[Rfam]
RNA sequence: UAACCCCGUGAUGUUCAGGUCCGCCGCAUCUCCUGGGUCAUGGGGUCGGUCGAUCAGAGCGCUCGAUCAAACGUGGCAUCCUCGUACCACGUCGAGCGCCUGAUCGACCCCUUU
Numbered sequence: 001u002a003a004c005c006c007c008g009u010g011a012u013g014u015u016c017a018g019g020u021c022c023g024c025c026g027c028a029u030c031u032c033c034u035g036g037g038u039c040a041u042g043g044g045g046u047c048g049g050u051c052g053a054u055c056a057g058a059g060c061g062c063u064c065g066a067u068c069a070a071a072c073g074u075g076g077c078a079u080c081c082u083c084g085u086a087c088c089a090c091g092u093c094g095a096g097c098g099c100c101u102g103a104u105c106g107a108c109c110c111c112u113u114u
Base pairs, nucleotide, nucleotide: 003046004045005044006043007042008041009040010039014037015036016035017034018033019032048109049108050107051106052105053104054103055102056101057100
Annotation:
The record is a 114-nucleotide RNA from Georhizobium profundi, which matches "EcpR1" in Rfam. The base pairs follow the family's consensus structure, which was predicted with WAR. Perviously named SmelC291, SmrC10, or Sra33. According to its overproduction phenotype it was renamed Elongated Cell Phenotype RNA1. Induced by stress,EcpR1 negatively regulates cell cycle master regulatory genes dnaA and gcrA at post-transcriptional level by base pairing between its strongly conserved GC-rich loop and the target mRNAs. NCBI's taxonomy places the organism under Bacteria, Pseudomonadati, Hyphomicrobiales, Rhizobiaceae, Georhizobium. A reference for the family is Reinkensmeier et al. (2011), "Conservation and Occurrence of Trans-Encoded sRNAs in the Rhizobiales", Genes (Basel). By type it is a small RNA.